[Rfam]
RNA sequence: UGGGCUUGACAUCAUCCUACUUGAGAUGUAAUGUAAUGCAAAGUCCCAAGUAGGUUGAUGUCUGGCCCA
Number, nucleotide and partner (000 for none) at each position: 001u069002g068003g067004g066005c065006u064007u000008g062009a061010c060011a059012u058013c057014a056015u000016c054017c000018u000019a000020c050021u049022u048023g047024a000025g045026a044027u043028g000029u000030a000031a000032u000033g000034u000035a000036a000037u000038g000039c000040a000041a000042a000043g027044u026045c025046c000047c023048a022049a021050g020051u000052a000053g000054g016055u000056u014057g013058a012059u011060g010061u009062c008063u000064g006065g005066c004067c003068c002069a001
The record is a 69-nucleotide RNA from Anolis carolinensis, which matches "mir-1662 microRNA precursor family" in Rfam. The organism belongs to Anolis, within Eukaryota. Rfam 15.1 lists 382 matches to the family in 376 species. Rfam's curators put it in the seed alignment.